[Rfam]
RNA sequence: ACAACAUUCGGACGGUCGCGUCGGUCUACCGAGCAAUAUCACGCACUCGGUGAAAGACCUUCCCUCCGUCCC
Numbered sequence: 001a002c003a004a005c006a007u008u009c010g011g012a013c014g015g016u017c018g019c020g021u022c023g024g025u026c027u028a029c030c031g032a033g034c035a036a037u038a039u040c041a042c043g044c045a046c047u048c049g050g051u052g053a054a055a056g057a058c059c060u061u062c063c064c065u066c067c068g069u070c071c072c
Stems, first nucleotide, its partner, number of pairs: 004069002010063003020058003025054001027052007
Dot-bracket structure: ...((....(((.......(((..(.(((((((............))))))).).)))..)))....))...